[Rfam]
RNA sequence: UUAUUUUCUCAGGGCAAGGUGAAAUUCCUUACUGGUGGUAACUAUUUUAUAGAAGUCCACGAGCGCCUUAUAUUUUAUAAGGGUCAAGCAGAUUUGGUGAGAAUCCAAAACCAACAGUCAUAGUCUGGAUGAAAGAGAAGAUUA
Numbered sequence: 001u002u003a004u005u006u007u008c009u010c011a012g013g014g015c016a017a018g019g020u021g022a023a024a025u026u027c028c029u030u031a032c033u034g035g036u037g038g039u040a041a042c043u044a045u046u047u048u049a050u051a052g053a054a055g056u057c058c059a060c061g062a063g064c065g066c067c068u069u070a071u072a073u074u075u076u077a078u079a080a081g082g083g084u085c086a087a088g089c090a091g092a093u094u095u096g097g098u099g100a101g102a103a104u105c106c107a108a109a110a111c112c113a114a115c116a117g118u119c120a121u122a123g124u125c126u127g128g129a130u131g132a133a134a135g136a137g138a139a140g141a142u143u144a
Stems, first nucleotide, its partner, number of pairs: 003142008017029003031124002033113002035060004055111002063089002093109005115127003

The record is a 144-nucleotide RNA from Aliarcobacter butzleri, which matches "FMN riboswitch aptamer (RFN element)" in Rfam. The organism belongs to Aliarcobacter butzleri, within Bacteria. A search with the family's covariance model found it, with a score of 123 bits.